Notes: The family of this 93-nucleotide RNA from Zostera marina is "Small nucleolar RNA U54". Pairs were carried over by alignment from the consensus structure, which was predicted with PFOLD. It scores 50 bits against the family's covariance model. Gene Ontology terms of the family: RNA processing and nucleolus. About the family: U54 is a C/D box small nucleolar RNA, which acts as a methylation guide for 18S ribosomal RNA in plants.

RNA sequence: GGCUCGAUGAUUUUAAGCCUUAUUUGUUGGCUAUAUACGCUAUUCUGAACAACAUUAUGUUGUAUUGAAAGAUUUAAAAAUUGCCUGAGAGUC
Numbered sequence: 001g002g003c004u005c006g007a008u009g010a011u012u013u014u015a016a017g018c019c020u021u022a023u024u025u026g027u028u029g030g031c032u033a034u035a036u037a038c039g040c041u042a043u044u045c046u047g048a049a050c051a052a053c054a055u056u057a058u059g060u061u062g063u064a065u066u067g068a069a070a071g072a073u074u075u076a077a078a079a080a081u082u083g084c085c086u087g088a089g090a091g092u093c
Stems, first nucleotide, its partner, number of pairs: 001093005